Background
A member of the RNA family "RAGATH-18 RNA", 66 nucleotides long. It is one of the family's seed sequences. Rfam describes the family as follows. Actinobacteria, Firmicutes, Fusobacteria, Thermotogae (1 example).

RNA sequence: GCUUUGGAGUGGCACAUCAAAUUGGAGUAGUAUUUAUAUACAAAACAAGCCACGAUGAAUUAGCAA
Number, nucleotide and partner (000 for none) at each position: 001g064002c063003u062004u000005u000006g000007g000008a000009g053010u052011g051012g050013c049014a000015c000016a000017u000018c000019a000020a000021a000022u048023u047024g046025g000026a000027g000028u000029a000030g041031u040032a039033u000034u000035u000036a000037u000038a000039u032040a031041c030042a000043a000044a000045a000046c024047a023048a022049g013050c012051c011052a010053c009054g000055a000056u000057g000058a000059a000060u000061u000062a003063g002064c001065a000066a000